[Rfam]
RNA sequence: GGCCAGGGGGAUUCCUGGUGGAGUGAUUCCGUGACAUUCUGAACCCAAUCACAUUGCCAGGGAUUUCCAAUGGCC
Numbered sequence: 001g002g003c004c005a006g007g008g009g010g011a012u013u014c015c016u017g018g019u020g021g022a023g024u025g026a027u028u029c030c031g032u033g034a035c036a037u038u039c040u041g042a043a044c045c046c047a048a049u050c051a052c053a054u055u056g057c058c059a060g061g062g063a064u065u066u067c068c069a070a071u072g073g074c075c
Stems, first nucleotide, its partner, number of pairs: 001075001003073003009068002011064011023052006

The record is a 75-nucleotide RNA from Esox lucius, which matches "mir-23 microRNA precursor family" in Rfam.
Taxonomically the source falls in Esox (Eukaryota, Vertebrata, Gnathostomata, Actinopterygii).